[Rfam]
RNA: MIR168 microRNA precursor family
Organism: Chenopodium quinoa
RNA sequence: UUUGCGGCAGCCUCUGAUUCGCUUGGUGCAGGUCGGGAACUGGUCAAAAUAAAUGUUCCGCCGCCGUAGCAGCCGCCGCGUAAUCAGUGGCGUGAGUUUAAUUGUUUCUGCUUAGCCGGUGGUAUUCCGGAUCCCGCCUUGCAUCAACUGAAUCGGAGUUUGUUGUGAAU
Numbered sequence: 001u002u003u004g005c006g007g008c009a010g011c012c013u014c015u016g017a018u019u020c021g022c023u024u025g026g027u028g029c030a031g032g033u034c035g036g037g038a039a040c041u042g043g044u045c046a047a048a049a050u051a052a053a054u055g056u057u058c059c060g061c062c063g064c065c066g067u068a069g070c071a072g073c074c075g076c077c078g079c080g081u082a083a084u085c086a087g088u089g090g091c092g093u094g095a096g097u098u099u100a101a102u103u104g105u106u107u108c109u110g111c112u113u114a115g116c117c118g119g120u121g122g123u124a125u126u127c128c129g130g131a132u133c134c135c136g137c138c139u140u141g142c143a144u145c146a147a148c149u150g151a152a153u154c155g156g157a158g159u160u161u162g163u164u165g166u167g168a169a170u
Stems, first nucleotide, its partner, number of pairs: 013157002017153004023147010034136005040130004